[Rfam]
RNA: Small nucleolar RNA snR8
Organism: Hanseniaspora osmophila
RNA sequence: ACGAAACAUAUUAAGGCAUUCUAUUCACUGUACCAUUUACAAAAAUUAUACCAUAAAUGACUAGAGGGGAAAAGAAGAGCUAGAUCAAAGGAACAAUUCAUUUUGUUCCAUUUUUAUUUGGAUAACGUCCUCAUACUGAUUUUCGAGAUUAUUUUAACUCUUAUAUUGGUAACUACGUAGUCCAUACAUCU
Number, nucleotide and partner (000 for none) at each position: 001a000002c000003g000004a000005a000006a000007c000008a000009u000010a000011u000012u000013a000014a000015g000016g080017c079018a000019u076020u075021c000022u000023a000024u000025u000026c000027a000028c066029u065030g000031u063032a062033c000034c059035a058036u057037u056038u055039a000040c000041a000042a000043a000044a000045a000046u000047u000048a000049u000050a000051c000052c000053a000054u000055a038056a037057a036058u035059g034060a000061c000062u032063a031064g000065a029066g028067g000068g000069g000070a000071a000072a000073a000074g000075a020076a019077g000078a000079g017080c016081u000082a000083g000084a000085u000086c000087a000088a000089a000090g000091g000092a000093a000094c000095a000096a000097u000098u000099c000100a000101u000102u000103u000104u000105g000106u000107u000108c000109c000110a000111u000112u000113u000114u000115u000116a000117u000118u000119u184120g183121g182122a181123u000124a000125a178126c177127g176128u000129c000130c000131u000132c000133a000134u000135a000136c169137u168138g167139a000140u165141u000142u163143u000144c000145g000146a155147g154148a000149u000150u000151a000152u000153u000154u147155u146156a000157a000158c000159u000160c000161u000162u000163a142164u000165a140166u000167u138168g137169g136170u000171a000172a000173c000174u000175a000176c127177g126178u125179a000180g000181u122182c121183c120184a119185u000186a000187c000188a000189u000190c000191u000